A member of the RNA family "Eukaryotic large subunit ribosomal RNA" from Octopus sinensis, 283 nucleotides of a longer RNA.

RNA sequence: GAGAUUACCGUAUUAGCAAGUCUAAUGGAGUUAUUCCAUGCGGCGUAAUGAAAGUAACUGGAUGUGAGGGUGUUAAACCUGCAACAUACGCCCCUAAUUGUAACUACGGUUUAUUAGGGAGUGUUAGCUAAUGCGUUAAGACCCGAAAGAUGGCGAACUAUACCUGGUUAAGAUGAAGCCAGUGGAAACACUGGUGGAGGUCUAUCGCGGUUCUGACGUGCAAAUCGAUUGUCGAAGCUGGGUAUAGGGGCGAAAUACUAAUCGAGCCAUCUAGUAGCUGGUU
Numbered sequence: 001g002a003g004a005u006u007a008c009c010g011u012a013u014u015a016g017c018a019a020g021u022c023u024a025a026u027g028g029a030g031u032u033a034u035u036c037c038a039u040g041c042g043g044c045g046u047a048a049u050g051a052a053a054g055u056a057a058c059u060g061g062a063u064g065u066g067a068g069g070g071u072g073u074u075a076a077a078c079c080u081g082c083a084a085c086a087u088a089c090g091c092c093c094c095u096a097a098u099u100g101u102a103a104c105u106a107c108g109g110u111u112u113a114u115u116a117g118g119g120a121g122u123g124u125u126a127g128c129u130a131a132u133g134c135g136u137u138a139a140g141a142c143c144c145g146a147a148a149g150a151u152g153g154c155g156a157a158c159u160a161u162a163c164c165u166g167g168u169u170a171a172g173a174u175g176a177a178g179c180c181a182g183u184g185g186a187a188a189c190a191c192u193g194g195u196g197g198a199g200g201u202c203u204a205u206c207g208c209g210g211u212u213c214u215g216a217c218g219u220g221c222a223a224a225u226c227g228a229u230u231g232u233c234g235a236a237g238c239u240g241g242g243u244a245u246a247g248g249g250g251c252g253a254a255a256u257a258c259u260a261a262u263c264g265a266g267c268c269a270u271c272u273a274g275u276a277g278c279u280g281g282u283u
Base pairs, nucleotide, nucleotide: 005139006138007137009135010134011133012132013131014130015129016128017127020044021043022042025039026038027037028036029035030034048055049054062087063086064085065084068080069079070078090122091121092119093118094117095116096115097114103110104109142281143280145278149271150270151269152268153267154266158247159246160245161244162243163242164241165240166239167238168237169235171203172202173201174200178195179194180193181192182191183190184189207232208231209230210229212228213227215226216225249259250258